Nucleotides: 059
Base pairs, nucleotide, nucleotide: 009051010050012048013047014046015045027044028043029042030041031040032039
Number, partner (000 for none) and nucleotide at each position: 001000u002000u003000g004000u005000g006000a007000u008000u009051c010050c011000a012048u013047u014046c015045a016000c017000a018000a019000c020000g021000g022000a023000u024000c025000g026000u027044c028043g029042g030041g031040c032039a033000c034000g035000u036000a037000c038000c039032u040031g041030c042029c043028c044027g045015u046014g047013g048012a049000a050010g051009g052000a053000u054000u055000g056000a057000u058000g059000c
Record summary: Rfam assigns this 59-nucleotide RNA from Arthrobacter sp. MYb227 to the family "msiK RNA". Rfam classes the family as a cis-regulatory element. A search with the family's covariance model found it, with a score of 58 bits. Pairs were carried over by alignment from the consensus structure, which is taken from published work.